Shown here is a 120-nucleotide RNA from Glycine max, a member of the family "MIR1520 microRNA precursor family".
Pairs were carried over by alignment from the consensus structure, which was predicted with RNAalifold.
Its Rfam clan is "MIR1520 microRNA precursor clan".
Taxonomically the source falls in Glycine subgen. Soja (Eukaryota, Tracheophyta, eudicotyledons, Papilionoideae).
The match comes from Rfam's covariance-model search (127 bits).
RNA sequence: UUCUUAUUGGAUGAUGACUGUCACGUGUCAUAUUCUGACUGAAUGUUAAUUCCAUGCAAGAUGAAAUGCAUUGUUAUUUUCAUUGACCAAUUAGAAUAUGACACGUGACAGUGAUCAUCC
Dot-bracket structure: ...................((((.((..(((.((((.(.(................................................).).)))).)))..)).))))...........
Numbered sequence: 001u002u003c004u005u006a007u008u009g010g011a012u013g014a015u016g017a018c019u020g021u022c023a024c025g026u027g028u029c030a031u032a033u034u035c036u037g038a039c040u041g042a043a044u045g046u047u048a049a050u051u052c053c054a055u056g057c058a059a060g061a062u063g064a065a066a067u068g069c070a071u072u073g074u075u076a077u078u079u080u081c082a083u084u085g086a087c088c089a090a091u092u093a094g095a096a097u098a099u100g101a102c103a104c105g106u107g108a109c110a111g112u113g114a115u116c117a118u119c120c
Stems, first nucleotide, its partner, number of pairs: 020109004025104002029100003033096004038091001040089001